[Rfam]
The record is a 136-nucleotide RNA from Pedobacter polaris, which matches "Flavo-1 RNA" in Rfam. Rfam classes the family as a small RNA. It scores 45 bits against the family's covariance model. Pairs were carried over by alignment from the consensus structure, which is taken from published work.
RNA sequence: AUAUAGCCCUUAUUGCAGUGAAAAUCCUUUUUACAAGCCAUGAUAUAGUCAUCCGAUAAAUAUUAAAUCAUUCUUAUGUAUAUAGGAUGCCUUCAAUAAACCACAAAAAAGAUUGUAAUGCAAAGCAGGACUAACU
Numbered sequence: 001a002u003a004u005a006g007c008c009c010u011u012a013u014u015g016c017a018g019u020g021a022a023a024a025u026c027c028u029u030u031u032u033a034c035a036a037g038c039c040a041u042g043a044u045a046u047a048g049u050c051a052u053c054c055g056a057u058a059a060a061u062a063u064u065a066a067a068u069c070a071u072u073c074u075u076a077u078g079u080a081u082a083u084a085g086g087a088u089g090c091c092u093u094c095a096a097u098a099a100a101c102c103a104c105a106a107a108a109a110a111g112a113u114u115g116u117a118a119u120g121c122a123a124a125g126c127a128g129g130a131c132u133a134a135c136u
Base pairs, nucleotide, nucleotide: 009128010127013124014123018119019118023114024113025112026111029109030108031107032106